[Rfam]
RNA: LOOT RNA
RNA sequence: CGCCUAAACUCUAAAUAAUUUUUAGGGCAUGGCAGAAAAUCCCUUGCAGCAACGAGAGCUCCUCGUUCAGUACCUGCAAGGGUCAUAUGCCGAAAGGUGUAUGGGCGCAAGCC
Numbered sequence: 001c002g003c004c005u006a007a008a009c010u011c012u013a014a015a016u017a018a019u020u021u022u023u024a025g026g027g028c029a030u031g032g033c034a035g036a037a038a039a040u041c042c043c044u045u046g047c048a049g050c051a052a053c054g055a056g057a058g059c060u061c062c063u064c065g066u067u068c069a070g071u072a073c074c075u076g077c078a079a080g081g082g083u084c085a086u087a088u089g090c091c092g093a094a095a096g097g098u099g100u101a102u103g104g105g106c107g108c109a110a111g112c113c
Stems, first nucleotide, its partner, number of pairs: 002033003009027007041082009056068004084103008104113003